Rfam assigns this 114-nucleotide RNA from Gorilla gorilla to the family "Y RNA".
A search with the family's covariance model found it, with a score of 62 bits.
The family has 104 seed sequences and 26,986 matches in Rfam 15.1.
[Rfam]
RNA sequence: GGCUGGUCUGAAAGUAGUGCAUUAUCUCAAUUGCAUGUUCACAGUCAGUUACAGACCAAACUCCUUGUUCUACUCUUUUCUCCCCUUCUCACUACUGCACUUGACUAGCCUCAA
Numbered sequence: 001g002g003c004u005g006g007u008c009u010g011a012a013a014g015u016a017g018u019g020c021a022u023u024a025u026c027u028c029a030a031u032u033g034c035a036u037g038u039u040c041a042c043a044g045u046c047a048g049u050u051a052c053a054g055a056c057c058a059a060a061c062u063c064c065u066u067g068u069u070c071u072a073c074u075c076u077u078u079u080c081u082c083c084c085c086u087u088c089u090c091a092c093u094a095c096u097g098c099a100c101u102u103g104a105c106u107a108g109c110c111u112c113a114a
Base pairs, nucleotide, nucleotide: 001110002109003108004107005106006105007104008103010102011101014098015097016093017092018091019090044074047071048070
Dot-bracket structure: ((((((((.((..((((((........................(..((.....................))..)...............))))...))..))))))))))....